[Rfam]
RNA sequence: UGCCGUGAGGCCCCGACCCGCAGGGUGACGGCCCUGGCAUCCCUUCCCCGGUGCCAGGUCCGCCUGCCCUGCGGGCCGGGACGUGACGGCAU
Numbered sequence: 001u002g003c004c005g006u007g008a009g010g011c012c013c014c015g016a017c018c019c020g021c022a023g024g025g026u027g028a029c030g031g032c033c034c035u036g037g038c039a040u041c042c043c044u045u046c047c048c049c050g051g052u053g054c055c056a057g058g059u060c061c062g063c064c065u066g067c068c069c070u071g072c073g074g075g076c077c078g079g080g081a082c083g084u085g086a087c088g089g090c091a092u
Stems, first nucleotide, its partner, number of pairs: 001091006010082001012080004017075009029062003033058008
This 92-nucleotide sequence from Actinomycetospora corticicola belongs to the Rfam family "mraW RNA". A search with the family's covariance model found it, with a score of 53 bits. NCBI's taxonomy places the organism under Bacteria, Bacillati, Pseudonocardiales, Pseudonocardiaceae, Actinomycetospora.